[Rfam]
The record is a 156-nucleotide sequence from Paenibacillus sp. NEAU-GSW1, which matches "c-di-AMP riboswitch aptamer (ydaO/yuaA leader)" in Rfam. Rfam describes the family as follows. This family represents a conserved RNA structure found upstream of the ydaO and yuaA genes in Bacillus subtilis and related genes in other bacteria.
RNA sequence: ACUAAUGUUACGCUUAAUUUUCGGCUCCAGGGUCGGAAAGCGGGGGAACCAAACGCAAUUGGGGCGAAUAGACUUCAGGUGCAACGCAUCUAAGCCUUAGGGUACCAUCUUACCCGAGUCCGUCAGCUAACCUCGUCAGCAGUGGAUGGGUCAACU
Numbered sequence: 001a002c003u004a005a006u007g008u009u010a011c012g013c014u015u016a017a018u019u020u021u022c023g024g025c026u027c028c029a030g031g032g033u034c035g036g037a038a039a040g041c042g043g044g045g046g047a048a049c050c051a052a053a054c055g056c057a058a059u060u061g062g063g064g065c066g067a068a069u070a071g072a073c074u075u076c077a078g079g080u081g082c083a084a085c086g087c088a089u090c091u092a093a094g095c096c097u098u099a100g101g102g103u104a105c106c107a108u109c110u111u112a113c114c115c116g117a118g119u120c121c122g123u124c125a126g127c128u129a130a131c132c133u134c135g136u137c138a139g140c141a142g143u144g145g146a147u148g149g150g151u152c153a154a155c156u
Base pairs, nucleotide, nucleotide: 012140013139014138018039019038020037021036022035023034024033025032026031040136041135042134043133044132045131050061051060062121063120064119070097071096073094074093075092100115101114102113103112
Taxonomically the source falls in Paenibacillus (Bacteria, Bacillati, Bacillota, Bacilli).